Shown here is a 98-nucleotide RNA from Clostridium celatum, a member of the family "Purine riboswitch aptamer". Lineage of the source: Bacteria > Bacillati > Eubacteriales > Clostridium > Clostridium celatum. Pairs were carried over by alignment from the consensus structure, which is taken from published work. A search with the family's covariance model found it, with a score of 71 bits.

RNA sequence: AAUACGAACAAUAAAACGACUCAUAUAAAUCCCAAAUAUGGUGGGAUGUAUCUACCGGAAGCCAUAAAUUUUCGACUAUGAGUGAACUUAGUAUAUAC
Numbered sequence: 001a002a003u004a005c006g007a008a009c010a011a012u013a014a015a016a017c018g019a020c021u022c023a024u025a026u027a028a029a030u031c032c033c034a035a036a037u038a039u040g041g042u043g044g045g046a047u048g049u050a051u052c053u054a055c056c057g058g059a060a061g062c063c064a065u066a067a068a069u070u071u072u073c074g075a076c077u078a079u080g081a082g083u084g085a086a087c088u089u090a091g092u093a094u095a096u097a098c
Stems, first nucleotide, its partner, number of pairs: 019083007029047006056074006